[Rfam]
RNA sequence: AAGGUAGUAACCGAAAAACCUUUAAUAGAGUAGGUA
Numbered sequence: 001a002a003g004g005u006a007g008u009a010a011c012c013g014a015a016a017a018a019c020c021u022u023u024a025a026u027a028g029a030g031u032a033g034g035u036a
Base pairs, nucleotide, nucleotide: 002021003020004019005018010035011034012033
A member of the RNA family "DUF805b RNA", 36 nucleotides long. By type it is a cis-regulatory element. It is one of the family's seed sequences.